The record is an 81-nucleotide RNA sequence from Vallitalea pronyensis, which matches "S10-Clostridia ribosomal protein leader" in Rfam. The organism belongs to Vallitalea, within Bacteria. Rfam classes the family as a cis-regulatory leader. The match comes from Rfam's covariance-model search (64 bits). The family's consensus secondary structure is taken from published work.
RNA sequence: AGAUAGCGAUGAAGUAUGAGGUUGCCGCUGAAGCGGGUAAUUCAUACUGAGCGAAUGUCAUGUUCAAGAAACUGGCGGCAA
Numbered sequence: 001a002g003a004u005a006g007c008g009a010u011g012a013a014g015u016a017u018g019a020g021g022u023u024g025c026c027g028c029u030g031a032a033g034c035g036g037g038u039a040a041u042u043c044a045u046a047c048u049g050a051g052c053g054a055a056u057g058u059c060a061u062g063u064u065c066a067a068g069a070a071a072c073u074g075g076c077g078g079c080a081a
Base pairs, nucleotide, nucleotide: 014047015046016045018043019042020041025036026035027034028033056080057079058078059077062076064075065074066073